RNA: Small nucleolar RNA SNORA44
RNA sequence: CGGCAUGUUAAUCCAAGAGCUGCGGCUCGUGCAGUAGCUACAGGUCUCCAACAACAUGCCAGAGCAAGGGGAAGGUCUUUGACUGCCGGGCCCGCUCUUGCCUGUCGCUGUCACUCGCCCCUCCUAUACAU
Dot-bracket structure: ............(....((((((..........))))))...)..........................(((.((.........((((((..........)))).....)).......)).))).......
Numbered sequence: 001c002g003g004c005a006u007g008u009u010a011a012u013c014c015a016a017g018a019g020c021u022g023c024g025g026c027u028c029g030u031g032c033a034g035u036a037g038c039u040a041c042a043g044g045u046c047u048c049c050a051a052c053a054a055c056a057u058g059c060c061a062g063a064g065c066a067a068g069g070g071g072a073a074g075g076u077c078u079u080u081g082a083c084u085g086c087c088g089g090g091c092c093c094g095c096u097c098u099u100g101c102c103u104g105u106c107g108c109u110g111u112c113a114c115u116c117g118c119c120c121c122u123c124c125u126a127u128a129c130a131u
Stems, first nucleotide, its partner, number of pairs: 013043001018039006070124003074120002085111002087104004